The record is a 52-nucleotide sequence from Agaricicola taiwanensis, which matches "ffh sRNA" in Rfam. The family's RNA type in Rfam is small RNA.
[Rfam]
RNA sequence: AGGUGAAGGGGUCACCGCCCGACAGCGCGAUGCGCCCUCGGGCGCGUUUUGC
Numbered sequence: 001a002g003g004u005g006a007a008g009g010g011g012u013c014a015c016c017g018c019c020c021g022a023c024a025g026c027g028c029g030a031u032g033c034g035c036c037c038u039c040g041g042g043c044g045c046g047u048u049u050u051g052c
Stems, first nucleotide, its partner, number of pairs: 016044007025035004
Dot-bracket structure: ...............(((((((..((((...))))..)))))))........

The base pairs follow the family's consensus structure, which is taken from published work.